[Rfam]
RNA sequence: UCAAACGGUAUUCUUUGGUUAAUAAUAAGGAUGGCAUCACGACUCAUUAUAUUAUUGCUCAAGAAUACCCUUUGA
Numbered sequence: 001u002c003a004a005a006c007g008g009u010a011u012u013c014u015u016u017g018g019u020u021a022a023u024a025a026u027a028a029g030g031a032u033g034g035c036a037u038c039a040c041g042a043c044u045c046a047u048u049a050u051a052u053u054a055u056u057g058c059u060c061a062a063g064a065a066u067a068c069c070c071u072u073u074g075a
Base pairs, nucleotide, nucleotide: 008068009067010066011065012064013063017059018058019057021056022055023054024053025052026051027050
Rfam assigns this 75-nucleotide sequence from Caenorhabditis brenneri to the family "mir-234 microRNA precursor family". It scores 74 bits against the family's covariance model. The family's consensus secondary structure was predicted with RNAalifold.